Shown here is a 130-nucleotide sequence from Sphaerochaeta halotolerans, a member of the family "FMN riboswitch aptamer (RFN element)". The base pairs follow the family's consensus structure, which is taken from published work.
RNA sequence: UACGUUCUUCAGGGUUAGGUGUAAUUCCUUACCGGCGGUAGGCAGCUAAGCUGCAAGCCCGCGAGCCCCUUGGGUUGAUUCGGUCAAAGUCCGAAGCCGACAGUUAAAGUCUGGAUGGAAGAAGAAUUGA
Numbered sequence: 001u002a003c004g005u006u007c008u009u010c011a012g013g014g015u016u017a018g019g020u021g022u023a024a025u026u027c028c029u030u031a032c033c034g035g036c037g038g039u040a041g042g043c044a045g046c047u048a049a050g051c052u053g054c055a056a057g058c059c060c061g062c063g064a065g066c067c068c069c070u071u072g073g074g075u076u077g078a079u080u081c082g083g084u085c086a087a088a089g090u091c092c093g094a095a096g097c098c099g100a101c102a103g104u105u106a107a108a109g110u111c112u113g114g115a116u117g118g119a120a121g122a123a124g125a126a127u128u129g130a
Base pairs, nucleotide, nucleotide: 004127005126006125007124008123009122010121017029018028019027031110032109033099034098035062036061037060038059057097058096065075066074067073079095080094081093082092083091101113102112103111